[Rfam]
RNA sequence: AAUCACGAGUUCCGCUCAUAACAGCCCUGGCUGAGUGGACGGCAACCCUCUAGGCCAUUGUGCGGGGUGCCCCAGGUGAAGAUUCGAUGCUUCUUGAAAUCCAAGAGCGUAAACGAUGGCG
Numbered sequence: 001a002a003u004c005a006c007g008a009g010u011u012c013c014g015c016u017c018a019u020a021a022c023a024g025c026c027c028u029g030g031c032u033g034a035g036u037g038g039a040c041g042g043c044a045a046c047c048c049u050c051u052a053g054g055c056c057a058u059u060g061u062g063c064g065g066g067g068u069g070c071c072c073c074a075g076g077u078g079a080a081g082a083u084u085c086g087a088u089g090c091u092u093c094u095u096g097a098a099a100u101c102c103a104a105g106a107g108c109g110u111a112a113a114c115g116a117u118g119g120c121g
Stems, first nucleotide, its partner, number of pairs: 001084004009040001011039006023032002041071003046067003050062001087110006094103001096101001

A member of the RNA family "SAM (S-adenosyl methionine) riboswitch aptamer" from Arthrobacter sp. NIO-1057, 121 nucleotides long. NCBI's taxonomy places the organism under Bacteria, Bacillati, Micrococcales, Micrococcaceae, Arthrobacter. Gene Ontology terms of the family: regulation of gene expression and S-adenosylmethionine metabolic process. The match comes from Rfam's covariance-model search (68 bits).